[Rfam]
This 64-nucleotide sequence belongs to the Rfam family "DUF3800-VIII RNA". Rfam describes the family as follows. Bacteroidetes, Cyanobacteria, Firmicutes, Planctomycetes (1 example), Proteobacteria, Tenericutes (1 example). The base pairs follow the family's consensus structure, which is taken from published work.

RNA sequence: CACACUCUUGCUGGCCGAAGCUUCACGCUGCGCGUGAGGUACUUAGUAGGCUGGCCGGAGUGUU
Dot-bracket structure: .(((((((.(((((((...(((((((((...)))))))))........))))))).))))))).
It is annotated as a small RNA.